[Rfam]
RNA sequence: CCGUGCUAGACGGGGAGGUAGCGGUGCCCUGUAACUCGCAAUCCGCUGUAGCGAGGUUGAAUUCCAAUCGUAGGUUUUUGUGUUGUGGGGCUGGUGCCCCGGAACAGUGUUGACGGCCGGGUCCUCCGCAAUGGACGCUUGUGAACGGGUCAGGUCCGGAAGGAAGCAGCCAUAAGCAGGUCCGUUCAUGUGCCGGAGGAGUGCUUGGCCCGAGCUGGGAACGGGCGUUCCGCCCAUGCCGCUUAAAUCGAGGAUUGGUGCACGG
Numbered sequence: 001c002c003g004u005g006c007u008a009g010a011c012g013g014g015g016a017g018g019u020a021g022c023g024g025u026g027c028c029c030u031g032u033a034a035c036u037c038g039c040a041a042u043c044c045g046c047u048g049u050a051g052c053g054a055g056g057u058u059g060a061a062u063u064c065c066a067a068u069c070g071u072a073g074g075u076u077u078u079u080g081u082g083u084u085g086u087g088g089g090g091c092u093g094g095u096g097c098c099c100c101g102g103a104a105c106a107g108u109g110u111u112g113a114c115g116g117c118c119g120g121g122u123c124c125u126c127c128g129c130a131a132u133g134g135a136c137g138c139u140u141g142u143g144a145a146c147g148g149g150u151c152a153g154g155u156c157c158g159g160a161a162g163g164a165a166g167c168a169g170c171c172a173u174a175a176g177c178a179g180g181u182c183c184g185u186u187c188a189u190g191u192g193c194c195g196g197a198g199g200a201g202u203g204c205u206u207g208g209c210c211c212g213a214g215c216u217g218g219g220a221a222c223g224g225g226c227g228u229u230c231c232g233c234c235c236a237u238g239c240c241g242c243u244u245a246a247a248u249c250g251a252g253g254a255u256u257g258g259u260g261c262a263c264g265g
Base pairs, nucleotide, nucleotide: 001265002264003263004262005261006260009058010057011056012030013029014028015027017025019023035055036054037053038052039051064258065257066256067255068254069253073249074248075247076246077245080242081241082240084238085237086236087235088234089233093230094229098225099224100223101222105218106216107215108214115210116209117208118207119206120205121204122203123199124198125197126196127195128194129190130189132188133187134186135185136184137181138180139179140178141177142176148171149170150169155164156163157162
RNA: Bacterial large signal recognition particle RNA